[Rfam]
RNA sequence: UCUUCAUUCCGCGUACUCUCUCACCGGUCAGAGUGGCGAGAGAGUUUGCAGAAUGAACAGA
Numbered sequence: 001u002c003u004u005c006a007u008u009c010c011g012c013g014u015a016c017u018c019u020c021u022c023a024c025c026g027g028u029c030a031g032a033g034u035g036g037c038g039a040g041a042g043a044g045u046u047u048g049c050a051g052a053a054u055g056a057a058c059a060g061a
Stems, first nucleotide, its partner, number of pairs: 001059001003057005012048002015045003019041004
mir-8364 microRNA precursor family: a 61-nucleotide RNA from Pristionchus pacificus. Pairs were carried over by alignment from the consensus structure, which was predicted with RNAalifold. The organism belongs to Pristionchus, within Eukaryota. Its family is annotated with RISC complex and miRNA-mediated post-transcriptional gene silencing in the Gene Ontology.